Description
This 84-nucleotide sequence from Vanessa tameamea belongs to the Rfam family "mir-283 microRNA precursor family". Its Rfam clan is "mir-216 clan". Its family is annotated with miRNA-mediated post-transcriptional gene silencing and RISC complex in the Gene Ontology. Pairs were carried over by alignment from the consensus structure, which was predicted with WAR. The organism belongs to Vanessa, within Eukaryota.

[Rfam]
RNA sequence: UAUCCGGCGGAUGGCUAAAUAUCAGCUGGUAAUUCUGGGUUCAUUAAACCCAGGCUAUCAGCUGGUAUGCAGUCAAAUGCUGUA
Numbered sequence: 001u002a003u004c005c006g007g008c009g010g011a012u013g014g015c016u017a018a019a020u021a022u023c024a025g026c027u028g029g030u031a032a033u034u035c036u037g038g039g040u041u042c043a044u045u046a047a048a049c050c051c052a053g054g055c056u057a058u059c060a061g062c063u064g065g066u067a068u069g070c071a072g073u074c075a076a077a078u079g080c081u082g083u084a
Stems, first nucleotide, its partner, number of pairs: 012075005019068011032056001034054006